[Rfam]
RNA sequence: GCCAAUGAUGAUCCAACUCUUUUGAUGUGUUGUGGAGCCAAUUCCUUGCCUUGCAAGGAGAACCUAGUUGGUGAAGCAACAUUUGAAAUGAUGAUUCAAGGGAUUUAACUGAGGU
Numbered sequence: 001g002c003c004a005a006u007g008a009u010g011a012u013c014c015a016a017c018u019c020u021u022u023u024g025a026u027g028u029g030u031u032g033u034g035g036a037g038c039c040a041a042u043u044c045c046u047u048g049c050c051u052u053g054c055a056a057g058g059a060g061a062a063c064c065u066a067g068u069u070g071g072u073g074a075a076g077c078a079a080c081a082u083u084u085g086a087a088a089u090g091a092u093g094a095u096u097c098a099a100g101g102g103a104u105u106u107a108a109c110u111g112a113g114g115u
Stems, first nucleotide, its partner, number of pairs: 001115003044058005
The family of this 115-nucleotide sequence from Carya illinoinensis is "Small nucleolar RNA Z278".
The family's consensus secondary structure was predicted with PFOLD.
The family's RNA type in Rfam is C/D-box small nucleolar RNA.
For this family Rfam cites "The high diversity of snoRNAs in plants: identification and comparative study of 120 snoRNA genes from Oryza sativa" (Chen et al., Nucleic Acids Res, 2003).
About the family: snoZ278 is a C/D box small nucleolar RNA. Its methylation guide targets have not been reported.